[Rfam]
RNA sequence: GUGCAGGCUUAGUCUAAAGGUUCCUUCGUUCAAUUACGAUAUCAUCGCUCUUUGAGUGUGAGUUCAAUCCUGACAUUGGACGCAAUCCUGCACUUUU
Numbered sequence: 001g002u003g004c005a006g007g008c009u010u011a012g013u014c015u016a017a018a019g020g021u022u023c024c025u026u027c028g029u030u031c032a033a034u035u036a037c038g039a040u041a042u043c044a045u046c047g048c049u050c051u052u053u054g055a056g057u058g059u060g061a062g063u064u065c066a067a068u069c070c071u072g073a074c075a076u077u078g079g080a081c082g083c084a085a086u087c088c089u090g091c092a093c094u095u096u097u
Base pairs, nucleotide, nucleotide: 002092003091004090005089006088007087012081013080014079015078017077018076020074025062026061027060028059029058
The family of this 97-nucleotide sequence from Clytia hemisphaerica is "Vault RNA".
The base pairs follow the family's consensus structure, which is taken from published work.
This family of RNAs are found as part of the enigmatic vault ribonucleoprotein complex. The complex consists of a major vault protein (MVP), two minor vault proteins (VPARP and TEP1), and several small untranslated RNA molecules. It has been suggested that the vault complex is involved in drug resistance.